This 92-nucleotide RNA from Geobacter sulfurreducens belongs to the Rfam family "c-di-GMP-I riboswitch aptamer". Taxonomically the source falls in Geobacter sulfurreducens (Bacteria, Pseudomonadati, Thermodesulfobacteriota, Geobacteraceae). Gene Ontology term of the family: cyclic-di-GMP binding. The match comes from Rfam's covariance-model search (61 bits).
RNA sequence: UUUCCGAAGAGGUAAAACCAGGGUAACCUGGUGACACAAAGCCACGGGUCCUGAAAUCGUCCUAGGUAUUUCAGGAUGGCCGGGUUGGCGAA
Numbered sequence: 001u002u003u004c005c006g007a008a009g010a011g012g013u014a015a016a017a018c019c020a021g022g023g024u025a026a027c028c029u030g031g032u033g034a035c036a037c038a039a040a041g042c043c044a045c046g047g048g049u050c051c052u053g054a055a056a057u058c059g060u061c062c063u064a065g066g067u068a069u070u071u072c073a074g075g076a077u078g079g080c081c082g083g084g085u086u087g088g089c090g091a092a
Stems, first nucleotide, its partner, number of pairs: 012037002017032006040086004045082003048077010